[Rfam]
RNA sequence: UAGCGAGGAAGGCAACCUAAGAACGCGGCAUCGUACCGCAAUGGUUGCCUGCGCAUCAUGGAGA
Numbered sequence: 001u002a003g004c005g006a007g008g009a010a011g012g013c014a015a016c017c018u019a020a021g022a023a024c025g026c027g028g029c030a031u032c033g034u035a036c037c038g039c040a041a042u043g044g045u046u047g048c049c050u051g052c053g054c055a056u057c058a059u060g061g062a063g064a
Base pairs, nucleotide, nucleotide: 011049012048013047014046015045016044017043025039026038027037028036054060

Shown here is a 64-nucleotide RNA from Planococcus lenghuensis, a member of the family "Bacillaceae-1 RNA". Rfam 15.1 lists 5,721 matches to the family in 247 species. A search with the family's covariance model found it, with a score of 38 bits.